[Rfam]
Shown here is a 64-nucleotide RNA from aff. Roholtiella sp. LEGE 12411, a member of the family "Nitrogen stress-induced RNA 4". It is annotated as a small RNA. The base pairs follow the family's consensus structure, which was predicted with RNAalifold. Its family is annotated with posttranscriptional regulation of gene expression in the Gene Ontology. Rfam describes the family as follows. Former name SyR12, is a cyanobacterial non-coding RNA which plays role in the regulation of Glutamine synthetase (GS), a key enzyme in biological nitrogen assimilation. NsiR4 interacts with the 5'UTR of the mRNA of the GS inactivating factor IF7 (gifA mRNA) and reduces its expression. NsiR4 expression is under positive control of the nitrogen control transcription factor (NtcA). NsR4 is a first example of an sRNA controlling the assimilation of a micronutrient. A search with the family's covariance model found it, with a score of 43 bits.
RNA sequence: AGCAGAGUAACCUGUAAUUACCCUCCGAUUGCUUAACCAGACCGCCCUAAUUUAGUGGCGGUUU
Numbered sequence: 001a002g003c004a005g006a007g008u009a010a011c012c013u014g015u016a017a018u019u020a021c022c023c024u025c026c027g028a029u030u031g032c033u034u035a036a037c038c039a040g041a042c043c044g045c046c047c048u049a050a051u052u053u054a055g056u057g058g059c060g061g062u063u064u
Stems, first nucleotide, its partner, number of pairs: 003014003039064008